A member of the RNA family "Streptococcus sRNA SpR18" from Suicoccus acidiformans, 132 nucleotides long. The match comes from Rfam's covariance-model search (134 bits).

RNA sequence: AUCAAUGGCUACAGAGGAUUAAAAACUGUAAUUGGGAUUAAAAUGGGAACAUUUGUAAAAAAAGAAUAAAUUGAAUAAUAGUUCCAAGUGGUUUGCAUUUGGACAAAAAAUUAGAUCGUAGUUUCAAGCUAC
Numbered sequence: 001a002u003c004a005a006u007g008g009c010u011a012c013a014g015a016g017g018a019u020u021a022a023a024a025a026c027u028g029u030a031a032u033u034g035g036g037a038u039u040a041a042a043a044u045g046g047g048a049a050c051a052u053u054u055g056u057a058a059a060a061a062a063a064g065a066a067u068a069a070a071u072u073g074a075a076u077a078a079u080a081g082u083u084c085c086a087a088g089u090g091g092u093u094u095g096c097a098u099u100u101g102g103a104c105a106a107a108a109a110a111u112u113a114g115a116u117c118g119u120a121g122u123u124u125c126a127a128g129c130u131a132c
Stems, first nucleotide, its partner, number of pairs: 006034003010030005036125002043119004051067004081104002084102007